[Rfam]
RNA sequence: AGAAAGCAUCAAGAACACAUAAUUGUGUACCAACCGACCUUCCGAGGCACGGUGGUUUAGAAUGCGGGACAAUCGUUCAAAAGUUUCGGAAAUC
Numbered sequence: 001a002g003a004a005a006g007c008a009u010c011a012a013g014a015a016c017a018c019a020u021a022a023u024u025g026u027g028u029a030c031c032a033a034c035c036g037a038c039c040u041u042c043c044g045a046g047g048c049a050c051g052g053u054g055g056u057u058u059a060g061a062a063u064g065c066g067g068g069a070c071a072a073u074c075g076u077u078c079a080a081a082a083g084u085u086u087c088g089g090a091a092a093u094c
Base pairs, nucleotide, nucleotide: 006065007064008063009062015028016027017026018025019024029056030055031054034052035051036050038047039046041090042089043088044087045086067078068077069076070075
Dot-bracket structure: .....((((.....(((((....)))))(((..(((.((.[[[[[))..))).))).....)))).((((....)))).......]]]]]....
Annotation: The record is a 94-nucleotide sequence, which matches "SAM-I/IV (S-adenosyl methionine) riboswitch aptamer" in Rfam. Its family is annotated with S-adenosylmethionine metabolic process and regulation of gene expression in the Gene Ontology. Rfam's curators put it in the seed alignment. Pairs were carried over by alignment from the consensus structure, which is taken from published work. A reference for the family is Trausch et al. (2014), "Structural basis for diversity in the SAM clan of riboswitches", PNAS.